This 51-nucleotide RNA sequence belongs to the Rfam family "Streptococcus sRNA SpF59 (ldcC RNA)". For this family Rfam cites "Control of virulence by small RNAs in Streptococcus pneumoniae" (Mann et al., PLoS Pathog, 2012). The family's RNA type in Rfam is small RNA. Pairs were carried over by alignment from the consensus structure, which was predicted with mfold. It is one of the family's seed sequences.
RNA sequence: UGACCACCCCAGUGCGGUUAAGGCCAUACGGACAGCCGGGUCAACUGCCGA
Numbered sequence: 001u002g003a004c005c006a007c008c009c010c011a012g013u014g015c016g017g018u019u020a021a022g023g024c025c026a027u028a029c030g031g032a033c034a035g036c037c038g039g040g041u042c043a044a045c046u047g048c049c050g051a
Stems, first nucleotide, its partner, number of pairs: 001043005006018003010014001